[Rfam]
RNA sequence: AUGGAUGAAAAGCAUUUAAAGGAUACCUGAUACAAUCUUCCUAAAGUAAAAUUUUCAUUUCCUGCUUGUGGUGUCAUUAGGAAGUUCUGCAAGUCCCAGUUGAGCAAAUAUCCUU
Numbered sequence: 001a002u003g004g005a006u007g008a009a010a011a012g013c014a015u016u017u018a019a020a021g022g023a024u025a026c027c028u029g030a031u032a033c034a035a036u037c038u039u040c041c042u043a044a045a046g047u048a049a050a051a052u053u054u055u056c057a058u059u060u061c062c063u064g065c066u067u068g069u070g071g072u073g074u075c076a077u078u079a080g081g082a083a084g085u086u087c088u089g090c091a092a093g094u095c096c097c098a099g100u101u102g103a104g105c106a107a108a109u110a111u112c113c114u115u
Base pairs, nucleotide, nucleotide: 001028003026005024006022007017053108054107055106064094065093066092067091068090069089070088071087073085074084
RNA: Small nucleolar RNA snoR104